[Rfam]
RNA sequence: GUAACUUCCGCUAGUAGGGUGUCAUCCGAGUAGCUGACACUGGGAUCUAGCCUUUAUUAUUUGGUUGAAAUUAAGUCUUCUGGAUUCCAGUGUCAGCUACUUUCAUGACAUCAUCAUAAAGUAAAA
Numbered sequence: 001g002u003a004a005c006u007u008c009c010g011c012u013a014g015u016a017g018g019g020u021g022u023c024a025u026c027c028g029a030g031u032a033g034c035u036g037a038c039a040c041u042g043g044g045a046u047c048u049a050g051c052c053u054u055u056a057u058u059a060u061u062u063g064g065u066u067g068a069a070a071u072u073a074a075g076u077c078u079u080c081u082g083g084a085u086u087c088c089a090g091u092g093u094c095a096g097c098u099a100c101u102u103u104c105a106u107g108a109c110a111u112c113a114u115c116a117u118a119a120a121g122u123a124a125a126a
Stems, first nucleotide, its partner, number of pairs: 012123002015120001020110006028102023
Dot-bracket structure: ...........((.(....((((((..(((((((((((((((((((((((.............................)))))))))))))))))))))))..)))))).........).))...

Rfam assigns this 126-nucleotide RNA from Trichonephila clavata to the family "Wolbachia sRNA 46".
The source organism's lineage runs through Eukaryota, Ecdysozoa, Panarthropoda, Araneomorphae and Trichonephila.
A reference for the family is Mayoral et al. (2014), "Wolbachia small noncoding RNAs and their role in cross-kingdom communications", Proc Natl Acad Sci U S A.